[Rfam]
Source information:
The record is a 101-nucleotide sequence from Pelosinus sp. UFO1, which matches "SAM riboswitch aptamer (S box leader)" in Rfam. The source organism's lineage runs through Bacteria, Negativicutes, Selenomonadales, Sporomusaceae and Pelosinus. The literature on the family includes a 1998 paper in Mol Microbiol by Grundy and Henkin, "The S box regulon: a new global transcription termination control system for methionine and cysteine biosynthesis genes in gram-positive bacteria". The match comes from Rfam's covariance-model search (88 bits). The SAM riboswitch is found upstream of a number of genes which code for proteins involved in methionine or cysteine biosynthesis in Gram-positive bacteria.
RNA sequence: AUCUUAUCCAGAGUGGUGGAGGGACUGGCCCAAUGACACCCAGCAACCGGCAGUAAUGCAGUGGUGCUAAUUCCAGCAGGAGCAAUCCUGGGAGAUAAGAA
Numbered sequence: 001a002u003c004u005u006a007u008c009c010a011g012a013g014u015g016g017u018g019g020a021g022g023g024a025c026u027g028g029c030c031c032a033a034u035g036a037c038a039c040c041c042a043g044c045a046a047c048c049g050g051c052a053g054u055a056a057u058g059c060a061g062u063g064g065u066g067c068u069a070a071u072u073c074c075a076g077c078a079g080g081a082g083c084a085a086u087c088c089u090g091g092g093a094g095a096u097a098a099g100a101a
Base pairs, nucleotide, nucleotide: 002100003099004098005097006096007095008094013041015040016039017038021031022030023029025076026075027074028073042068043067044066045065047064048063050059051058052057072093077090078089079088080087081086
Dot-bracket structure: .(((((((....(.(((...(((.[[[[)))......))))((((.((.(((....)))...))))))...(]]]](((((....)))))..)))))))).